RNA sequence: UAGAACAAUGUAGAUAAGGGAAGUCGGCAAAAUAGAUCCGUAACUUCGGGAAAAGGAUUGGCUCUAAGGGUUGGGCCAGUUGGGCCUUGGGGGGAACCCCCUGGAGCAGGGAGUCACUAGCCGGGCAACCGGCCGGCGGCACCCAGCACCGGGUGGGGGACGCCCUUGGCAGGCUUCGGCCGUCCGGCUGGCGAUUAACAACCAACUUAGAACUGGUACGGACAAGGGGAAUCUGACUGUCUAAUUAAAACAUAGCAUUGCGAUGGCCAGAAAGUGGUGUUGACGCAAUGUGAUUUCUGCCCAGUGCUCUGAAUGUCAAAGUGAUGAAAUUCAAAUAAGCGCGGGUAAACGGCGGGAGUAACUAUGACUCUCUUAAGGUAGCCAAAUGCCUCGUCAUCUAAUUAGUGACGCGCAUGAAUGGAUUAACGAGAUUCCCACUGUCCCUAUCUACUAUCUAGCGAAACCACAGCCAAGGGAACGGGCUUGGCAGA
Numbered sequence: 001u002a003g004a005a006c007a008a009u010g011u012a013g014a015u016a017a018g019g020g021a022a023g024u025c026g027g028c029a030a031a032a033u034a035g036a037u038c039c040g041u042a043a044c045u046u047c048g049g050g051a052a053a054a055g056g057a058u059u060g061g062c063u064c065u066a067a068g069g070g071u072u073g074g075g076c077c078a079g080u081u082g083g084g085c086c087u088u089g090g091g092g093g094g095a096a097c098c099c100c101c102u103g104g105a106g107c108a109g110g111g112a113g114u115c116a117c118u119a120g121c122c123g124g125g126c127a128a129c130c131g132g133c134c135g136g137c138g139g140c141a142c143c144c145a146g147c148a149c150c151g152g153g154u155g156g157g158g159g160a161c162g163c164c165c166u167u168g169g170c171a172g173g174c175u176u177c178g179g180c181c182g183u184c185c186g187g188c189u190g191g192c193g194a195u196u197a198a199c200a201a202c203c204a205a206c207u208u209a210g211a212a213c214u215g216g217u218a219c220g221g222a223c224a225a226g227g228g229g230a231a232u233c234u235g236a237c238u239g240u241c242u243a244a245u246u247a248a249a250a251c252a253u254a255g256c257a258u259u260g261c262g263a264u265g266g267c268c269a270g271a272a273a274g275u276g277g278u279g280u281u282g283a284c285g286c287a288a289u290g291u292g293a294u295u296u297c298u299g300c301c302c303a304g305u306g307c308u309c310u311g312a313a314u315g316u317c318a319a320a321g322u323g324a325u326g327a328a329a330u331u332c333a334a335a336u337a338a339g340c341g342c343g344g345g346u347a348a349a350c351g352g353c354g355g356g357a358g359u360a361a362c363u364a365u366g367a368c369u370c371u372c373u374u375a376a377g378g379u380a381g382c383c384a385a386a387u388g389c390c391u392c393g394u395c396a397u398c399u400a401a402u403u404a405g406u407g408a409c410g411c412g413c414a415u416g417a418a419u420g421g422a423u424u425a426a427c428g429a430g431a432u433u434c435c436c437a438c439u440g441u442c443c444c445u446a447u448c449u450a451c452u453a454u455c456u457a458g459c460g461a462a463a464c465c466a467c468a469g470c471c472a473a474g475g476g477a478a479c480g481g482g483c484u485u486g487g488c489a490g491a
Stems, first nucleotide, its partner, number of pairs: 001457004010451007018443003035059005044049001060214002063211006069203005075192009084170003089165003097158004101152004106147002109144003113140003117136002120133005215219001227436007234428002238252003255291008266278004295422003299353003304350002306346004311342001314341003322333003354372006373377001393409005470487005
This 491-nucleotide part of an RNA from Cladophialophora carrionii belongs to the Rfam family "Eukaryotic large subunit ribosomal RNA".